Rfam assigns this 97-nucleotide RNA sequence to the family "SAM-I/IV (S-adenosyl methionine) riboswitch aptamer".
[Rfam]
RNA sequence: AAAGUUCAUCAAGAGUGAGAUUAAGUUCUCCUCCAACCUGCCAACUCCGGCAAGGUGGAAAAAAUGAUGUGGUUAAUCAACAAAUAAUGGAGAUGCA
Numbered sequence: 001a002a003a004g005u006u007c008a009u010c011a012a013g014a015g016u017g018a019g020a021u022u023a024a025g026u027u028c029u030c031c032u033c034c035a036a037c038c039u040g041c042c043a044a045c046u047c048c049g050g051c052a053a054g055g056u057g058g059a060a061a062a063a064a065u066g067a068u069g070u071g072g073u074u075a076a077u078c079a080a081c082a083a084a085u086a087a088u089g090g091a092g093a094u095g096c097a
Base pairs, nucleotide, nucleotide: 007069008068009067010066015031017030018029019028020027032059033058034057037055038054039053040051041050042049045092046091047090048089072081073080074079